The family of this 120-nucleotide RNA from Allobacillus sp. SKP2-8 is "SAM riboswitch aptamer (S box leader)".
The match comes from Rfam's covariance-model search (86 bits).
The source organism's lineage runs through Bacteria, Bacillati, Caryophanales, Bacillaceae and Allobacillus.
Nucleotides: 120
Base pairs, nucleotide, nucleotide: 001120002119003118004117005116006115007114008113013041015040016039017038021031022030023029025090026089027088028087042082043081044080045079047078048077051073052072053071054070055069056068057067058066086112091109092108093107094106095105096104
Number, partner (000 for none) and nucleotide at each position: 001120c002119u003118c004117u005116u006115a007114u008113c009000a010000a011000g012000a013041g014000a015040g016039g017038u018000g019000g020000a021031g022030g023029g024000a025090c026089u027088g028087g029023c030022c031021c032000g033000a034000u035000g036000a037000a038017g039016c040015c041013c042082g043081g044080c045079a046000a047078c048077c049000a050000c051073u052072g053071g054070a055069u056068g057067a058066u059000g060000u061000u062000u063000a064000a065000a066058a067057u068056c069055a070054u071053c072052c073051a074000a075000c076000a077048g078047g079045u080044g081043c082042u083000a084000a085000u086112u087028c088027c089026a090025g091109c092108a093107a094106a095105g096104c097000a098000g099000g100000g101000g102000a103000u104096g105095c106094u107093u108092u109091g110000a111000a112086a113008g114007a115006u116005a117004a118003g119002g120001g